[Rfam]
RNA sequence: ACAGCGGGCCGUGACUGGCGCGUCGGGAUGGGGUGAACCAUCGGGGAGCGGCCCGGCGAGCGAUGAGGAGCCGUGCGCCUGGGCCAUCGCG
Numbered sequence: 001a002c003a004g005c006g007g008g009c010c011g012u013g014a015c016u017g018g019c020g021c022g023u024c025g026g027g028a029u030g031g032g033g034u035g036a037a038c039c040a041u042c043g044g045g046g047a048g049c050g051g052c053c054c055g056g057c058g059a060g061c062g063a064u065g066a067g068g069a070g071c072c073g074u075g076c077g078c079c080u081g082g083g084c085c086a087u088c089g090c091g
Base pairs, nucleotide, nucleotide: 005055006054007053008052009051010050011049012048015045016044017079018078019077020076021075028041029040030039031038070084071083072082

This 91-nucleotide RNA sequence from Streptomyces hoynatensis belongs to the Rfam family "ZMP/ZTP riboswitch aptamer (pfl RNA motif)".